[Rfam]
RNA sequence: GUUAAGCAUAAGUACUUCUUUACUAUCCCAUACUGAACUCAAUUGUAUGGAAUGUAAAGAAGUAUGUAUGGUUAGC
Numbered sequence: 001g002u003u004a005a006g007c008a009u010a011a012g013u014a015c016u017u018c019u020u021u022a023c024u025a026u027c028c029c030a031u032a033c034u035g036a037a038c039u040c041a042a043u044u045g046u047a048u049g050g051a052a053u054g055u056a057a058a059g060a061a062g063u064a065u066g067u068a069u070g071g072u073u074a075g076c
Stems, first nucleotide, its partner, number of pairs: 007070004012065012028050005